[Rfam]
tRNA: an 87-nucleotide RNA sequence from Nitrospira defluvii. Rfam links the family to the GO term triplet codon-amino acid adaptor activity.

RNA sequence: GGAGGGGUGACGGAGUGGCCGAACGUGCCGGUCUUGAAAACCGGAGAUGGGGUAACCUAUCCGCGAGUUCAAAUCUCGCCCCCUCCG
Numbered sequence: 001g002g003a004g005g006g007g008u009g010a011c012g013g014a015g016u017g018g019c020c021g022a023a024c025g026u027g028c029c030g031g032u033c034u035u036g037a038a039a040a041c042c043g044g045a046g047a048u049g050g051g052g053u054a055a056c057c058u059a060u061c062c063g064c065g066a067g068u069u070c071a072a073a074u075c076u077c078g079c080c081c082c083c084u085c086c087g
Stems, first nucleotide, its partner, number of pairs: 001086007010026003028044005063079005
NCBI's taxonomy places the organism under Bacteria, Pseudomonadati, Nitrospirota, Nitrospirales, Nitrospira. The family's RNA type in Rfam is transfer RNA. The family is grouped with related families in Rfam's "tRNA clan". Pairs were carried over by alignment from the consensus structure, which is taken from published work.